RNA sequence: UAAGGCCCCAGGGCCACCCGAUAAUUGCGGGCCAGCAGGCGCAAGCCCUGCCGCUGCAGGAAGGCCGCGGCCCGCUCCUCGGCCUGCUG
Numbered sequence: 001u002a003a004g005g006c007c008c009c010a011g012g013g014c015c016a017c018c019c020g021a022u023a024a025u026u027g028c029g030g031g032c033c034a035g036c037a038g039g040c041g042c043a044a045g046c047c048c049u050g051c052c053g054c055u056g057c058a059g060g061a062a063g064g065c066c067g068c069g070g071c072c073c074g075c076u077c078c079u080c081g082g083c084c085u086g087c088u089g
Stems, first nucleotide, its partner, number of pairs: 003085004012072003015045001017031003035051004052069003056065002